[Rfam]
RNA sequence: AUCUUAUCGAGAGAGGUGGAGGGACUGGCCCGAAGAAACCUCAGCAACCAGCUUAGGCAAAGGUGCUAAAUCCAGCAAGCAGAGCUUGAUAGAUGAGGA
Numbered sequence: 001a002u003c004u005u006a007u008c009g010a011g012a013g014a015g016g017u018g019g020a021g022g023g024a025c026u027g028g029c030c031c032g033a034a035g036a037a038a039c040c041u042c043a044g045c046a047a048c049c050a051g052c053u054u055a056g057g058c059a060a061a062g063g064u065g066c067u068a069a070a071u072c073c074a075g076c077a078a079g080c081a082g083a084g085c086u087u088g089a090u091a092g093a094u095g096a097g098g099a
Base pairs, nucleotide, nucleotide: 002098003097004096005095006094007093008092013042014041015040016039017038021031022030023029025075026074027073028072043067044066045065046064048063049062051058052057071091076088077087078086079085080084

Description: SAM riboswitch aptamer (S box leader): a 99-nucleotide sequence from Peribacillus muralis. It scores 90 bits against the family's covariance model. NCBI's taxonomy places the organism under Bacteria, Bacillati, Bacilli, Caryophanales, Peribacillus. The family's consensus secondary structure is taken from published work.